[Rfam]
The family of this 218-nucleotide RNA is "PhrS". The base pairs follow the family's consensus structure, which was predicted with CMfinder. The family's RNA type in Rfam is small RNA. Gene Ontology term of the family: quorum sensing.
RNA sequence: AUCAAGACAAGGCGCAGCACAAGAAGGAGGCAGCCAUGUUCAUGGAUACAGUGGUUCUCGCCGGCAUCGGCACAGUCGCUCUGAUGGUCGCCUUCUUCGGUGGCGUCGGUCUCUUCAUCUGGAAGGAUUCUCACAAGAAGGCCAAGGCAAAGGCCGGGUAAUCCUUUCGAAACGUGCACGCAAGGCAUUUUGGGCGACUUCGGUCGCCCAUUUUUUUG
Numbered sequence: 001a002u003c004a005a006g007a008c009a010a011g012g013c014g015c016a017g018c019a020c021a022a023g024a025a026g027g028a029g030g031c032a033g034c035c036a037u038g039u040u041c042a043u044g045g046a047u048a049c050a051g052u053g054g055u056u057c058u059c060g061c062c063g064g065c066a067u068c069g070g071c072a073c074a075g076u077c078g079c080u081c082u083g084a085u086g087g088u089c090g091c092c093u094u095c096u097u098c099g100g101u102g103g104c105g106u107c108g109g110u111c112u113c114u115u116c117a118u119c120u121g122g123a124a125g126g127a128u129u130c131u132c133a134c135a136a137g138a139a140g141g142c143c144a145a146g147g148c149a150a151a152g153g154c155c156g157g158g159u160a161a162u163c164c165u166u167u168c169g170a171a172a173c174g175u176g177c178a179c180g181c182a183a184g185g186c187a188u189u190u191u192g193g194g195c196g197a198c199u200u201c202g203g204u205c206g207c208c209c210a211u212u213u214u215u216u217u218g
Stems, first nucleotide, its partner, number of pairs: 011101001013099001051061003078089001080087002176186002179184001192209007